Notes
Shown here is a 46-nucleotide RNA sequence from Panurus biarmicus, a member of the family "Histone 3' UTR stem-loop". Rfam classes the family as a cis-regulatory element. From the family's description: The mRNAs of metazoan histone genes lack a poly-A tail. 3' end processing occurs at a site between a highly conserved stem-loop (modelled by this family) and a purine rich region around 20 nts downstream (the histone downstream element, or HDE). The stem-loop is bound by a 31 kDa stem-loop binding protein (SLBP - also termed the histone hairpin binding protein, or HBP). Together with U7 snRNA binding of the HDE, SLBP binding nucleate s the formation of the processing complex. The histone 3' UTR stem-loop is also involved in nucleocytoplasmic transport of the mRNA, and in stability regulation and translation efficiency in the cytoplasm. NCBI's taxonomy places the organism under Eukaryota, Craniata, Coelurosauria, Telluraves, Panurus.
RNA sequence: CCAAAGGCUCUUUUUAGAGCCACCUACAAAUUCAGAAAAAGAGCUU
Numbered sequence: 001c002c003a004a005a006g007g008c009u010c011u012u013u014u015u016a017g018a019g020c021c022a023c024c025u026a027c028a029a030a031u032u033c034a035g036a037a038a039a040a041g042a043g044c045u046u
Stems, first nucleotide, its partner, number of pairs: 006021006